A member of the RNA family "Archaeal signal recognition particle RNA" from Thermoplasmatales archaeon I-plasma, 309 nucleotides long. A reference for the family is Batey et al. (2001), "Structural and energetic analysis of RNA recognition by a universally conserved protein from the signal recognition particle", J Mol Biol. NCBI's taxonomy places the organism under Archaea, Methanobacteriati, Thermoplasmatota, Thermoplasmata, Thermoplasmatales. Rfam classes the family as a non-coding RNA gene. The match comes from Rfam's covariance-model search (171 bits). Its family is annotated with SRP-dependent cotranslational protein targeting to membrane, signal sequence recognition and signal recognition particle, plasma membrane targeting in the Gene Ontology.
RNA sequence: AUGCCGGGCUGGCCGGGAGGGUAGGCGUCUCCUGUUACUCGAAACCGUCUAUACGCGGGGGCGACAGCCGAUAUAGAAGGCAACCUUGAAGGUGCGAGCCUUUGACGUUCGGCGAAACUCUGUCCCAUCAGAUCCAGGUUGUAUGCAUCUUUCCCGGAGGGGAGAGGGGCAUGCGUUAUCACGGGAAUCCGCCAGGACCGGAAGGGAGCAACGGUUACGUGGACCGCGGAUGCCGAUGGGGGCACGGAGCGGAGAAUAGAGAAGGUCACCGCAUCUAUCUAUCGCCCUUUGAUGUCGGUGGCCCGGCUU
Numbered sequence: 001a002u003g004c005c006g007g008g009c010u011g012g013c014c015g016g017g018a019g020g021g022u023a024g025g026c027g028u029c030u031c032c033u034g035u036u037a038c039u040c041g042a043a044a045c046c047g048u049c050u051a052u053a054c055g056c057g058g059g060g061g062c063g064a065c066a067g068c069c070g071a072u073a074u075a076g077a078a079g080g081c082a083a084c085c086u087u088g089a090a091g092g093u094g095c096g097a098g099c100c101u102u103u104g105a106c107g108u109u110c111g112g113c114g115a116a117a118c119u120c121u122g123u124c125c126c127a128u129c130a131g132a133u134c135c136a137g138g139u140u141g142u143a144u145g146c147a148u149c150u151u152u153c154c155c156g157g158a159g160g161g162g163a164g165a166g167g168g169g170c171a172u173g174c175g176u177u178a179u180c181a182c183g184g185g186a187a188u189c190c191g192c193c194a195g196g197a198c199c200g201g202a203a204g205g206g207a208g209c210a211a212c213g214g215u216u217a218c219g220u221g222g223a224c225c226g227c228g229g230a231u232g233c234c235g236a237u238g239g240g241g242g243c244a245c246g247g248a249g250c251g252g253a254g255a256a257u258a259g260a261g262a263a264g265g266u267c268a269c270c271g272c273a274u275c276u277a278u279c280u281a282u283c284g285c286c287c288u289u290u291g292a293u294g295u296c297g298g299u300g301g302c303c304c305g306g307c308u309u
Stems, first nucleotide, its partner, number of pairs: 001309001003307007010064001012062003015033006038059004067299008076290005081284001083282001086281001088279002090276007098266006107257004118249006124240006131233001132231004137224001138177001140175007148167008179222005185216001189214003198205002